[Rfam]
RNA sequence: GGGGGUAUGCUUAGAGCCCCCAGAACGGAGUGUUAAUAGUUGCGCUUUUGGCCGAGCGUAGCGGUUAGUGAAUC
Numbered sequence: 001g002g003g004g005g006u007a008u009g010c011u012u013a014g015a016g017c018c019c020c021c022a023g024a025a026c027g028g029a030g031u032g033u034u035a036a037u038a039g040u041u042g043c044g045c046u047u048u049u050g051g052c053c054g055a056g057c058g059u060a061g062c063g064g065u066u067a068g069u070g071a072a073u074c
Base pairs, nucleotide, nucleotide: 001021002020003019004018005017006016033068034067035066036065037064039062040061041060042059043058044057045056046055047054
Shown here is a 74-nucleotide sequence from Prevotella sp. CAG:1124, a member of the family "L13-Bacteroidia ribosomal protein leader". For this family Rfam cites "Discovery of 20 novel ribosomal leader candidates in bacteria and archaea" (Eckert and Weinberg, BMC Microbiol, 2020). It scores 72 bits against the family's covariance model.